[Rfam]
RNA sequence: GGGCAGUGAUGUAAAGGUUUUACGACUGACCUUUGUAACUGUGAAGGUUUCUACACUUGACCUGAGCUCA
Numbered sequence: 001g002g003g004c005a006g007u008g009a010u011g012u013a014a015a016g017g018u019u020u021u022a023c024g025a026c027u028g029a030c031c032u033u034u035g036u037a038a039c040u041g042u043g044a045a046g047g048u049u050u051c052u053a054c055a056c057u058u059g060a061c062c063u064g065a066g067c068u069c070a
Stems, first nucleotide, its partner, number of pairs: 001069004013034007
The family of this 70-nucleotide sequence from Pongo abelii is "Small nucleolar RNA U2-30". Taxonomically the source falls in Pongo (Eukaryota, Opisthokonta, Eumetazoa, Gnathostomata). Rfam links the family to the GO terms RNA processing and nucleolus. Pairs were carried over by alignment from the consensus structure, which is taken from published work.